[Rfam]
Nucleotides: 087
Base pairs, nucleotide, nucleotide: 034067035066039062040061041058043056044055045054046053047052
Number, partner (000 for none) and nucleotide at each position: 001000c002000a003000a004000a005000c006000c007000u008000g009000a010000a011000a012000c013000a014000a015000u016000g017000a018000a019000a020000g021000c022000c023000c024000u025000g026000c027000c028000u029000c030000u031000c032000u033000c034067u035066c036000a037000u038000c039062c040061a041058u042000a043056c044055g045054g046053c047052u048000c049000c050000a051000a052047a053046g054045c055044c056043g057000c058041g059000c060000c061040u062039g063000u064000g065000a066035g067034a068000a069000u070000c071000a072000a073000g074000u075000u076000c077000u078000a079000g080000g081000a082000c083000a084000c085000a086000a087000a
The record is an 87-nucleotide RNA from Peribacillus asahii, which matches "BsrC" in Rfam. It scores 79 bits against the family's covariance model. Pairs were carried over by alignment from the consensus structure, which was predicted with CMfinder. The family has 29 seed sequences and 572 matches in Rfam 15.1. The 301 nucleotide sequence from Kouji Nakamura has been trimmed to a highly conserved ~85 nucleotide long core to form this family. Rfam classes the family as a small RNA. The source organism's lineage runs through Bacteria, Bacillati, Bacillota, Caryophanales and Peribacillus.